RNA: Ruegeria cis8 sRNA
Nucleotides: 128
Stems, first nucleotide, its partner, number of pairs: 004017002007014002026128002029125002033122002036119001038114003043109001045107002048104001050102003061093003066088001072084004
Number, partner (000 for none) and nucleotide at each position: 001000a002000c003000g004017g005016c006000c007014a008013a009000a010000a011000c012000c013008u014007u015000c016005g017004c018000a019000a020000u021000g022000u023000a024000g025000g026128g027127g028000a029125u030124c031000a032000a033122c034121g035000g036119c037000a038114g039113a040112u041000u042000c043109a044000g045107g046106a047000u048104c049000a050102g051101c052100a053000a054000c055000a056000c057000c058000a059000g060000a061093u062092u063091g064000c065000c066088c067000a068000a069000a070000u071000a072084c073083a074082u075081c076000g077000a078000g079000a080000u081075g082074a083073u084072g085000a086000c087000c088066g089000c090000c091063c092062a093061g094000a095000a096000a097000a098000u099000c100052u101051g102050c103000g104048g105000c106046u107045c108000g109043u110000c111000g112040a113039u114038c115000a116000u117000c118000a119036g120000g121034c122033g123000c124030g125029g126000g127027c128026c